[Rfam]
RNA sequence: CUCCUUAUGGGAAGUGAAGACCCCGUGGAGCUUUACUGCAGCCUGUCGUUGGGUUACGGUAUUACCUGCGCAGGGUAGAUGGGAGACGUCGAUCCAACCCUUGUGGGGGUUGGUUAGUCACCGAUGAGACACCAUCCUGGUUUUAUUGUAAUUCUAACUGAUUUAUCAGGACAUCGAUAGGUAGGCAGUUUGGGUGGGGCGCCACACCCUCGAAAAAAUAUCAAGGGUGCCCUAAGGUCAACUCAAGCGGGUCAGAAACCCGCUGAAGAGUGUCAAGAGCAAAAGUUGGCCUGACGCGAUUUCGCAUAGCAAGAAAUCGCGAGAGGAAACUCGGGUCUAACGAACCAAUACGCCCUGUUGAUGAGGGCUAUUGACUACAGAAAAGCUACCCCGGGGAUAACAGAGUCGUCGCCGGCAAGAGCACAUAUCGACCCGGCGGCUUGCUACCUCGAUGUCGGUUCUUUCCAUCCUGGCUGUGCAGCAGCAGCCAAGGGUGAGGUUGUUCGCCUAUUAAAGGGGAUCGUGAGCUGGGUUUAGACCGUCGUGAGACAGGUCGGUUACUAUCUAUAAGGAGUGUUG
Dot-bracket structure: ((((((((.(((.((......((((.(((((((.((((...(((((((..(((((((((((..(((.(.........(((((..(((.........(((((....)))))......)))............)))))).)))..)))))))))))...((((....)))).....)))))))....))))..((((.....))).)(((((.............)))))..((....((((((((.((((((.......))))))...))((.......))....))))))....(((((((((.........))))))))).(.(....).).))..........(((((.(((((.......)))))))))).........)))))..))))))........(((.((((((((...((.......))...)))))))..))))..........(((((((((((..((..(((((......)))))....))..((((.....))))......)))))..)..)))).).....(((((((....))).))))....))..))))))))))).....

The record is a 579-nucleotide part of an RNA from Methanospirillum hungatei, which matches "Archaeal large subunit ribosomal RNA" in Rfam. Rfam 15.1 lists 2,955 matches to the family in 1,139 species. Rfam links the family to the GO terms ribosome and structural constituent of ribosome.